[Rfam]
RNA sequence: AGCAUGGUGGUGGCAGCAUAAUGCUGUGGGGAUGUUUUUCAUCCCCACAGCAUUAUGCUGCCACCACCAUGCU
Numbered sequence: 001a002g003c004a005u006g007g008u009g010g011u012g013g014c015a016g017c018a019u020a021a022u023g024c025u026g027u028g029g030g031g032a033u034g035u036u037u038u039u040c041a042u043c044c045c046c047a048c049a050g051c052a053u054u055a056u057g058c059u060g061c062c063a064c065c066a067c068c069a070u071g072c073u
Base pairs, nucleotide, nucleotide: 003071004070005069006068007067008066009065010064011063012062013061014060015059016058017057018056019055022052023051024050025049026048027047028046029045030044031043
RNA: mir-196 microRNA precursor family